Rfam assigns this 58-nucleotide RNA from Pyrobaculum neutrophilum to the family "Pyrobaculum sRNA 210". The literature on the family includes a 2012 paper in RNA by Bernick et al., "Discovery of Pyrobaculum small RNA families with atypical pseudouridine guide RNA features". Lineage of the source: Archaea > Thermoproteota > Thermoprotei > Pyrobaculum > Pyrobaculum neutrophilum. The base pairs follow the family's consensus structure. It is annotated as an H/ACA-box small nucleolar RNA.
[Rfam]
RNA sequence: CGGGCUCGACCGCCGCGUCUGCGGCAGUAUGACAGGCCCGCCCGCGGCCGAGUCUACA
Number, nucleotide and partner (000 for none) at each position: 001c040002g039003g038004g037005c036006u035007c000008g000009a000010c000011c000012g025013c024014c023015g022016c021017g000018u000019c000020u000021g016022c015023g014024g013025c012026a000027g000028u000029a000030u000031g000032a000033c000034a000035g006036g005037c004038c003039c002040g001041c000042c000043c000044g000045c000046g000047g000048c000049c000050g000051a000052g000053u000054c000055u000056a000057c000058a000